[Rfam]
RNA sequence: GGCUUCUGGAACGGGGAAUCACCCUGGGUUCGCAUGGUUUCUUUUGACAUGUGAACACAGCAGGUGGUAUCUCAGAUCCCGAUGUCCU
Numbered sequence: 001g002g003c004u005u006c007u008g009g010a011a012c013g014g015g016g017a018a019u020c021a022c023c024c025u026g027g028g029u030u031c032g033c034a035u036g037g038u039u040u041c042u043u044u045u046g047a048c049a050u051g052u053g054a055a056c057a058c059a060g061c062a063g064g065u066g067g068u069a070u071c072u073c074a075g076a077u078c079c080c081g082a083u084g085u086c087c088u
Base pairs, nucleotide, nucleotide: 008079009078010077012075015073016071017070018068019067021065022064023063024060025059026058028056030054031053
RNA: mir-317 microRNA precursor family
Organism: Notodromas monacha